[Rfam]
RNA sequence: GUCGAGAGGGCGGAGAAUGCAAUACCCUUCGGGGGAAUAAUCCCGACCGACUUUUGGCGGUUUUCGAACCUCUCGGCACCCUAUG
Numbered sequence: 001g002u003c004g005a006g007a008g009g010g011c012g013g014a015g016a017a018u019g020c021a022a023u024a025c026c027c028u029u030c031g032g033g034g035g036a037a038u039a040a041u042c043c044c045g046a047c048c049g050a051c052u053u054u055u056g057g058c059g060g061u062u063u064u065c066g067a068a069c070c071u072c073u074c075g076g077c078a079c080c081c082u083a084u085g
Stems, first nucleotide, its partner, number of pairs: 001077009013044001015042002025034003045062005
RNA: sRNA-Xcc1